The family of this 71-nucleotide RNA from Hypericibacter adhaerens is "Makes More Granules Regulator RNA (mmgR)". Its family is annotated with response to nitrogen compound, DNA-templated transcription, termination and protein binding in the Gene Ontology. Lineage of the source: Bacteria > Pseudomonadati > Pseudomonadota > Dongiaceae > Hypericibacter.

RNA sequence: CAUGAACGCCUCAUGGGCGUUUCCUCCCAGAACUUGGGCCGUGCAACGCACGGCCCUUUUUUUUGGCUUUU
Numbered sequence: 001c002a003u004g005a006a007c008g009c010c011u012c013a014u015g016g017g018c019g020u021u022u023c024c025u026c027c028c029a030g031a032a033c034u035u036g037g038g039c040c041g042u043g044c045a046a047c048g049c050a051c052g053g054c055c056c057u058u059u060u061u062u063u064u065g066g067c068u069u070u071u
Stems, first nucleotide, its partner, number of pairs: 008018004036056009